[Rfam]
RNA sequence: GCGUUCCUGAGAGUUCCCUUGAACACUUCAUGAGGGAUUACUUUGUUAUAUCAAGCCCUGCUGAAGUGUUUGGGGGAACUCUCGGGUUCAC
Numbered sequence: 001g002c003g004u005u006c007c008u009g010a011g012a013g014u015u016c017c018c019u020u021g022a023a024c025a026c027u028u029c030a031u032g033a034g035g036g037a038u039u040a041c042u043u044u045g046u047u048a049u050a051u052c053a054a055g056c057c058c059u060g061c062u063g064a065a066g067u068g069u070u071u072g073g074g075g076g077a078a079c080u081c082u083c084g085g086g087u088u089c090a091c
Base pairs, nucleotide, nucleotide: 006086007085008084009083011081012080013079014078015077016076017075018074019073020072022071023070024068025067026066027065028064029063030062033059034058035057
Shown here is a 91-nucleotide RNA sequence from Capsicum annuum, a member of the family "mir-395 microRNA precursor family". NCBI's taxonomy places the organism under Eukaryota, Tracheophyta, eudicotyledons, Solanoideae, Capsicum. mir-395 was identified in both Arabidopsis thaliana and Oryza sativa computationally and was later experimentally verified. mir-395 is thought to target mRNAs coding for ATP sulphurylases. The mature sequence is excised from the 3' arm of the hairpin. A reference for the family is Jones-Rhoades and Bartel (2004), "Computational Identification of Plant MicroRNAs and Their Targets, Including a Stress-Induced miRNA", Mol Cell. It scores 74 bits against the family's covariance model.